[Rfam]
Nucleotides: 062
Base pairs, nucleotide, nucleotide: 010025011024013022016053017052018051019050020049021048035043036042
Number, partner (000 for none) and nucleotide at each position: 001000a002000u003000c004000u005000g006000c007000a008000c009000a010025g011024g012000a013022g014000a015000u016053g017052g018051c019050a020049u021048u022013c023000c024011u025010c026000c027000u028000u029000g030000a031000a032000a033000c034000c035043g036042c037000c038000u039000c040000g041000u042036g043035c044000u045000g046000a047000u048021g049020a050019u051018g052017c053016c054000u055000a056000c057000g058000u059000a060000a061000a062000c